[Rfam]
RNA: Selenocysteine transfer RNA
RNA sequence: CGGAGGGUGAUCCGAUCCGGGGAUCGGCGCGGUCUCGAAAACCGAGGGCACCUUCGCGGUGUGGAGUUCGACUCUUCCGCCCUCCU
Numbered sequence: 001c002g003g004a005g006g007g008u009g010a011u012c013c014g015a016u017c018c019g020g021g022g023a024u025c026g027g028c029g030c031g032g033u034c035u036c037g038a039a040a041a042c043c044g045a046g047g048g049c050a051c052c053u054u055c056g057c058g059g060u061g062u063g064g065a066g067u068u069c070g071a072c073u074c075u076u077c078c079g080c081c082c083u084c085c086u
Base pairs, nucleotide, nucleotide: 002085003084004083005082006081007080008079009078012027013026014025015024016023017022028046030044031043032042033041048062049061050060051059052058063077064076065075066074
Dot-bracket structure: .((((((((..((((((....))))))(.((((.......)))).).(((((.....)))))((((.......)))))))))))).